Shown here is an 88-nucleotide RNA sequence from Neomicrococcus aestuarii, a member of the family "SAM riboswitch aptamer (S box leader)". A reference for the family is Grundy and Henkin (1998), "The S box regulon: a new global transcription termination control system for methionine and cysteine biosynthesis genes in gram-positive bacteria", Mol Microbiol. The source organism's lineage runs through Bacteria, Actinomycetes, Micrococcales, Micrococcaceae and Neomicrococcus.

RNA sequence: UACCCAUCUAGAGCGGCUGAGAGACCUGGCUCCGCGACGCCGCAGCAACACUCAUGUGAGUUCGUGCUACAGCCAGGACCGAUGGAAG
Numbered sequence: 001u002a003c004c005c006a007u008c009u010a011g012a013g014c015g016g017c018u019g020a021g022a023g024a025c026c027u028g029g030c031u032c033c034g035c036g037a038c039g040c041c042g043c044a045g046c047a048a049c050a051c052u053c054a055u056g057u058g059a060g061u062u063c064g065u066g067c068u069a070c071a072g073c074c075a076g077g078a079c080c081g082a083u084g085g086a087a088g
Stems, first nucleotide, its partner, number of pairs: 001088001004085005013043005021032003026076004044068004049064001051060003072080001